Rfam assigns this 84-nucleotide sequence to the family "mir-301 microRNA precursor family". For this family Rfam cites "Embryonic stem cell-specific MicroRNAs" (Houbaviy et al., Dev Cell, 2003). It is one of the family's seed sequences. The family's consensus secondary structure was predicted with WAR.

RNA sequence: UGCUGACGACUGCUCUGACUUUAUUGCACUACUGUACUGUACAGCUAGCAGUGCAAUAGUAUUGUCAAAGCAUCCGGGAGCAGG
Numbered sequence: 001u002g003c004u005g006a007c008g009a010c011u012g013c014u015c016u017g018a019c020u021u022u023a024u025u026g027c028a029c030u031a032c033u034g035u036a037c038u039g040u041a042c043a044g045c046u047a048g049c050a051g052u053g054c055a056a057u058a059g060u061a062u063u064g065u066c067a068a069a070g071c072a073u074c075c076g077g078g079a080g081c082a083g084g
Stems, first nucleotide, its partner, number of pairs: 002081003007076002011072004016067004023057008034042001